[Rfam]
RNA: Group II catalytic intron D1-D4-7
RNA sequence: CCCCCAAUCCAUUCUGGGUGUCCCUACCUGCACGUGCGUGUUUAGCAAUAAAUGGGUGCGAAGCUGCAGGAACAAAGUGGUUACUCCCAUAGUCUCAUUGGGAUAUACUGCUAGGGAAAGGUAUCAUGGACAAACAAACGUUGAAUCG
Numbered sequence: 001c002c003c004c005c006a007a008u009c010c011a012u013u014c015u016g017g018g019u020g021u022c023c024c025u026a027c028c029u030g031c032a033c034g035u036g037c038g039u040g041u042u043u044a045g046c047a048a049u050a051a052a053u054g055g056g057u058g059c060g061a062a063g064c065u066g067c068a069g070g071a072a073c074a075a076a077g078u079g080g081u082u083a084c085u086c087c088c089a090u091a092g093u094c095u096c097a098u099u100g101g102g103a104u105a106u107a108c109u110g111c112u113a114g115g116g117a118a119a120g121g122u123a124u125c126a127u128g129g130a131c132a133a134a135c136a137a138a139c140g141u142u143g144a145a146u147c148g
Base pairs, nucleotide, nucleotide: 003018004017005016006015028069029068030067031066032065033060034059035058036057037056039054040053041052042051043050044049086101087100102125103124104123105122108115109114127144129142130141131140